[Rfam]
RNA sequence: GAGUCACAGUGAACAUUCAACGCUGUCGGUGAGUUUGCAACUGAGAGAAACCAUCGAGUGUUGAGUGUACCCUGCCCCUCG
Numbered sequence: 001g002a003g004u005c006a007c008a009g010u011g012a013a014c015a016u017u018c019a020a021c022g023c024u025g026u027c028g029g030u031g032a033g034u035u036u037g038c039a040a041c042u043g044a045g046a047g048a049a050a051c052c053a054u055c056g057a058g059u060g061u062u063g064a065g066u067g068u069a070c071c072c073u074g075c076c077c078c079u080c081g
Base pairs, nucleotide, nucleotide: 003079007074008073014067015066016065017064018063019062020061021060022059026057027056028055029054030053031052033051034050035049036048
Notes: This 81-nucleotide RNA from Cyprinus carpio belongs to the Rfam family "mir-181 microRNA precursor family". Pairs were carried over by alignment from the consensus structure, which was predicted with PFOLD. Rfam links the family to the GO terms miRNA-mediated post-transcriptional gene silencing and RISC complex. The sequence is in the family's curated seed alignment.